[Rfam]
RNA sequence: CGGUACGUGGUUCGCAACCCUCCCACGCAAAAAAACUAAGGACAC
Numbered sequence: 001c002g003g004u005a006c007g008u009g010g011u012u013c014g015c016a017a018c019c020c021u022c023c024c025a026c027g028c029a030a031a032a033a034a035a036c037u038a039a040g041g042a043c044a045c
Base pairs, nucleotide, nucleotide: 006027007026008025009024010023016037
This 45-nucleotide RNA from Pasteurella felis belongs to the Rfam family "PreQ1 (pre queuosine) riboswitch aptamer".
The organism belongs to Pasteurella, within Bacteria.
About the family: This family is a bacterial riboswitch that binds to the metabolite preQ1, an intermediate in the biosynthesis of the modified nucleoside queuosine from GTP. One example of this riboswitch is located in the leader of the Bacillus subtilis ykvJKLM (queCDEF) operon which encodes four genes necessary for queuosine production. PreQ1 binding to the riboswitch aptamer is thought to induce premature transcription termination within the leader to down-regulate expression of these genes.
For this family Rfam cites "Identification of four genes necessary for biosynthesis of the modified nucleoside queuosine" (Reader et al., J Biol Chem, 2004).